[Rfam]
RNA sequence: AAAGUAAACCGAUCUAUCGCUGCUCUCUCGGGAGCGGAGGAAAGUCCGGGCAACGCAGAGCAUCCUGCUUCCUAACGGGAAGGCGCCUUCAGUGGGCGACGGCAAGUGCCACAGAGAAUAUACCGCCUGUGUUUACACAGGUAAGGGUGAAAACGUGAGGUAAGAGCUCACGGCCUUGUAUGGCAACAUGCAUUGCGGUAAACCCCAGGAGUUGAAAAACCAAAUAGGUCCCGAAAGUGAGGCUGCUCGCUUCCGUGUGGUGCGCAAGUGCCAACGUUGGGAUGGGUAGGUUGAUAGAGCCGGUUAGCGAUAACCGGACCAGAUUAAUGAUAGAUACCCGGCAACGGGAUACAGAACCCGGCUUACAGGUUUGCUACUGAA
Numbered sequence: 001a002a003a004g005u006a007a008a009c010c011g012a013u014c015u016a017u018c019g020c021u022g023c024u025c026u027c028u029c030g031g032g033a034g035c036g037g038a039g040g041a042a043a044g045u046c047c048g049g050g051c052a053a054c055g056c057a058g059a060g061c062a063u064c065c066u067g068c069u070u071c072c073u074a075a076c077g078g079g080a081a082g083g084c085g086c087c088u089u090c091a092g093u094g095g096g097c098g099a100c101g102g103c104a105a106g107u108g109c110c111a112c113a114g115a116g117a118a119u120a121u122a123c124c125g126c127c128u129g130u131g132u133u134u135a136c137a138c139a140g141g142u143a144a145g146g147g148u149g150a151a152a153a154c155g156u157g158a159g160g161u162a163a164g165a166g167c168u169c170a171c172g173g174c175c176u177u178g179u180a181u182g183g184c185a186a187c188a189u190g191c192a193u194u195g196c197g198g199u200a201a202a203c204c205c206c207a208g209g210a211g212u213u214g215a216a217a218a219a220c221c222a223a224a225u226a227g228g229u230c231c232c233g234a235a236a237g238u239g240a241g242g243c244u245g246c247u248c249g250c251u252u253c254c255g256u257g258u259g260g261u262g263c264g265c266a267a268g269u270g271c272c273a274a275c276g277u278u279g280g281g282a283u284g285g286g287u288a289g290g291u292u293g294a295u296a297g298a299g300c301c302g303g304u305u306a307g308c309g310a311u312a313a314c315c316g317g318a319c320c321a322g323a324u325u326a327a328u329g330a331u332a333g334a335u336a337c338c339c340g341g342c343a344a345c346g347g348g349a350u351a352c353a354g355a356a357c358c359c360g361g362c363u364u365a366c367a368g369g370u371u372u373g374c375u376a377c378u379g380a381a
Base pairs, nucleotide, nucleotide: 003375004374005373006372007371008370009369010368011366012335013334014333015332016331017330018329020037021036022035023034024033025032026031042364043363044362046361047360048359049358050357051214052213053212054211063210064209065208066207067206068082069081070080071079072078083100084098085097086096087095101205102204106203107202108199109198110197123146124145125142126141127140128139129138130137131136154172155171156170157169158168159167177192178191179190180189181188182187218292219291220290221289228283229282230281231280232279233278262272300317301316302315303314304313305312306311
Dot-bracket structure: ..((((((((((((((((.(((((((....)))))))....[[[.[[[[[((((........((((((((((.....)))))(((((.......)))).)((...(((((............(((((((((....)))))))..)).......((((((.......))))))....((((((....))))))....)))..)))))))))))))...((((......((((((............................(.........).....)))))).....)))).......(((((((....)))))))...........))))))).....................]]]]]]]].).))))))))......
Shown here is a 381-nucleotide sequence from Mucilaginibacter gracilis, a member of the family "Bacterial RNase P class A". The match comes from Rfam's covariance-model search (252 bits). About the family: Ribonuclease P (RNase P) is a ubiquitous endoribonuclease, found in archaea, bacteria and eukarya as well as chloroplasts and mitochondria. The family's consensus secondary structure is taken from published work. Gene Ontology terms of the family: ribonuclease P activity, dimeric ribonuclease P complex and tRNA processing.